[Rfam]
RNA sequence: AUCACACAUGAAGAGAGGACUGACGUCCCGCCAACCUGCCCGGACCGGCAAGGUGGUUCCCCUCCCGGGGCAUGCGACCAAAGGGUAACCAAGUGUCCAUGA
Numbered sequence: 001a002u003c004a005c006a007c008a009u010g011a012a013g014a015g016a017g018g019a020c021u022g023a024c025g026u027c028c029c030g031c032c033a034a035c036c037u038g039c040c041c042g043g044a045c046c047g048g049c050a051a052g053g054u055g056g057u058u059c060c061c062c063u064c065c066c067g068g069g070g071c072a073u074g075c076g077a078c079c080a081a082a083g084g085g086u087a088a089c090c091a092a093g094u095g096u097c098c099a100u101g102a
Stems, first nucleotide, its partner, number of pairs: 007074004015029001017028004030057003035053003038049003042097002046093001077086003
Rfam assigns this 102-nucleotide RNA to the family "SAM-I/IV (S-adenosyl methionine) riboswitch aptamer". The family has 417 seed sequences and 567 matches in Rfam 15.1.